[Rfam]
RNA sequence: GUCGGCAAGUGAUGUGAACAUUUAUAUGCUAUCACUCAAUGGAAAUUUCCAUGUGUGGACCAAUAAUCUCCGCUUAUUAUCUGAUGCCUUC
Numbered sequence: 001g002u003c004g005g006c007a008a009g010u011g012a013u014g015u016g017a018a019c020a021u022u023u024a025u026a027u028g029c030u031a032u033c034a035c036u037c038a039a040u041g042g043a044a045a046u047u048u049c050c051a052u053g054u055g056u057g058g059a060c061c062a063a064u065a066a067u068c069u070c071c072g073c074u075u076a077u078u079a080u081c082u083g084a085u086g087c088c089u090u091c
Base pairs, nucleotide, nucleotide: 004088005087006086007085